[Rfam]
RNA sequence: CAACCUGACGGUGAUGGAGUUCACCGGAACCGCCGCGGCGAUCGCCGACUCCAGAACGCGAAUGCCGUCCUUCUCCUGGCCGAGCCGUGGCUGAUGACUCCUGCGGGGAG
Numbered sequence: 001c002a003a004c005c006u007g008a009c010g011g012u013g014a015u016g017g018a019g020u021u022c023a024c025c026g027g028a029a030c031c032g033c034c035g036c037g038g039c040g041a042u043c044g045c046c047g048a049c050u051c052c053a054g055a056a057c058g059c060g061a062a063u064g065c066c067g068u069c070c071u072u073c074u075c076c077u078g079g080c081c082g083a084g085c086c087g088u089g090g091c092u093g094a095u096g097a098c099u100c101c102u103g104c105g106g107g108g109a110g
Base pairs, nucleotide, nucleotide: 010025011024012023013022016101017100018099019098020097021096032091033090034089035088036087037086038085039084
Fluoride riboswitch aptamer (crcB RNA motif): a 110-nucleotide RNA sequence from Thermogemmata fonticola.
The source organism's lineage runs through Bacteria, Planctomycetia, Gemmatales, Gemmataceae and Thermogemmata.
The match comes from Rfam's covariance-model search (47 bits).